[Rfam]
RNA sequence: GAUCAGCAUUUACCGGGGCAUACGAGAGGUAUGCGCGGAACUCCCGGCAAGCAAGCUUGCAAAGGUGAUUCCCUUUUC
Numbered sequence: 001g002a003u004c005a006g007c008a009u010u011u012a013c014c015g016g017g018g019c020a021u022a023c024g025a026g027a028g029g030u031a032u033g034c035g036c037g038g039a040a041c042u043c044c045c046g047g048c049a050a051g052c053a054a055g056c057u058u059g060c061a062a063a064g065g066u067g068a069u070u071c072c073c074u075u076u077u078c
Stems, first nucleotide, its partner, number of pairs: 011049001013047005018034006